[Rfam]
The family of this 107-nucleotide sequence from Alkalicoccus halolimnae is "SAM riboswitch aptamer (S box leader)".

RNA sequence: CUCUUAUCAAGAGCGGCGGAGGGACUGGCCCGAUGAAACCCGGCAACCACCAGGAACAACCUGGAAGGUGCCAAAUCCUGCAGAAUGUUAAUUCUGAAAGAUAAGGG
Numbered sequence: 001c002u003c004u005u006a007u008c009a010a011g012a013g014c015g016g017c018g019g020a021g022g023g024a025c026u027g028g029c030c031c032g033a034u035g036a037a038a039c040c041c042g043g044c045a046a047c048c049a050c051c052a053g054g055a056a057c058a059a060c061c062u063g064g065a066a067g068g069u070g071c072c073a074a075a076u077c078c079u080g081c082a083g084a085a086u087g088u089u090a091a092u093u094c095u096g097a098a099a100g101a102u103a104a105g106g107g
Stems, first nucleotide, its partner, number of pairs: 001107008013041001015040002021031003025080001027078002042072004047068002050064004076099001081096006